[Rfam]
RNA: mir-130 microRNA precursor family
RNA sequence: UUCAGGGCCAGUGCUCUAUCCACUGCGCCACCUAGCUGCCCCUUUCAAUAACAUAAUUAAAAAUACCUUGGGGCAGCUAGGUGGCGCAGUGGAUAGAGCACUGGCCCUGAA
Numbered sequence: 001u002u003c004a005g006g007g008c009c010a011g012u013g014c015u016c017u018a019u020c021c022a023c024u025g026c027g028c029c030a031c032c033u034a035g036c037u038g039c040c041c042c043u044u045u046c047a048a049u050a051a052c053a054u055a056a057u058u059a060a061a062a063a064u065a066c067c068u069u070g071g072g073g074c075a076g077c078u079a080g081g082u083g084g085c086g087c088a089g090u091g092g093a094u095a096g097a098g099c100a101c102u103g104g105c106c107c108u109g110a111a
Stems, first nucleotide, its partner, number of pairs: 001111003006106006013099008023089020